A member of the RNA family "Group II catalytic intron D1-D4-2" from Lophotis ruficrista, 122 nucleotides long. The base pairs follow the family's consensus structure. The match comes from Rfam's covariance-model search (37 bits). Rfam links the family to the GO term Group II intron splicing.

[Rfam]
RNA sequence: CAGGAAGGUCUUGCCUGGGGGUCUGCUCUCAGGAGCAAACCCCACAGCAAAUGCUGAUGCUGAAGCAGAUGGCUGAGGCGCUGAGGGAUGUAGAGAAGGCAGAGAAAAAAGAAUUCAGCAGU
Numbered sequence: 001c002a003g004g005a006a007g008g009u010c011u012u013g014c015c016u017g018g019g020g021g022u023c024u025g026c027u028c029u030c031a032g033g034a035g036c037a038a039a040c041c042c043c044a045c046a047g048c049a050a051a052u053g054c055u056g057a058u059g060c061u062g063a064a065g066c067a068g069a070u071g072g073c074u075g076a077g078g079c080g081c082u083g084a085g086g087g088a089u090g091u092a093g094a095g096a097a098g099g100c101a102g103a104g105a106a107a108a109a110a111g112a113a114u115u116c117a118g119c120a121g122u
Stems, first nucleotide, its partner, number of pairs: 001017004005011001018043005025036004047122002052092003055088001056082001059079003064074003099119002102116003